[Rfam]
RNA sequence: GGGGGCAGAGGAAGCAUGGCCACGCAGCACACAGACAAGGAGCUUGCUCCUCACAAAGCUGCGGGGAAAGUCCUCGUGCCCUUGGGCAGAGAGUGCCACUGGGAGACCAGCAGGCCUGGGUUCAGGAGCUUACAGCGAAGCUUUUCGCAGAGGUGUGGUUCCUGAGCACUGGCCACUUGCAGCAGCAAAGUUAUGCCAUGAGCGUUUUUUGCAACGCCAACUGAACGAGGCUCACUCUCCUGAUGCCCC
Numbered sequence: 001g002g003g004g005g006c007a008g009a010g011g012a013a014g015c016a017u018g019g020c021c022a023c024g025c026a027g028c029a030c031a032c033a034g035a036c037a038a039g040g041a042g043c044u045u046g047c048u049c050c051u052c053a054c055a056a057a058g059c060u061g062c063g064g065g066g067a068a069a070g071u072c073c074u075c076g077u078g079c080c081c082u083u084g085g086g087c088a089g090a091g092a093g094u095g096c097c098a099c100u101g102g103g104a105g106a107c108c109a110g111c112a113g114g115c116c117u118g119g120g121u122u123c124a125g126g127a128g129c130u131u132a133c134a135g136c137g138a139a140g141c142u143u144u145u146c147g148c149a150g151a152g153g154u155g156u157g158g159u160u161c162c163u164g165a166g167c168a169c170u171g172g173c174c175a176c177u178u179g180c181a182g183c184a185g186c187a188a189a190g191u192u193a194u195g196c197c198a199u200g201a202g203c204g205u206u207u208u209u210u211g212c213a214a215c216g217c218c219a220a221c222u223g224a225a226c227g228a229g230g231c232u233c234a235c236u237c238u239c240c241u242g243a244u245g246c247c248c249c
Base pairs, nucleotide, nucleotide: 002249003248004247005246006245009241010240011239012238015200016199017198018197019196020195023063024062025061026060027059028058038051039050040049041048042047069232070231072230073229074228075227085097086096087095088094099110100109101108102107113173115171120167121166122165123164124163125162134159136157143153144152145151146150202217203216204215205214206213
Record summary: The family of this 249-nucleotide sequence from Effrenium voratum is "RNase MRP". RNase MRP is an enzymatically active ribonucleoprotein with two distinct roles in eukaryotes. In mitochondria it plays a direct role in the initiation of mitochondrial DNA replication. In the nucleus it is involved in precursor rRNA processing, where it cleaves the internal transcribed spacer 1 between 18S and 5.8S rRNAs. Despite distinct functions, RNase MRP has been shown to be evolutionarily related to RNase P. Like eukaryotic RNase P, RNase MRP is not catalytically active without associated protein subunits. The match comes from Rfam's covariance-model search (106 bits). Pairs were carried over by alignment from the consensus structure, which is taken from published work. The source organism's lineage runs through Eukaryota, Alveolata, Suessiales, Symbiodiniaceae and Effrenium. It is annotated as a ribozyme.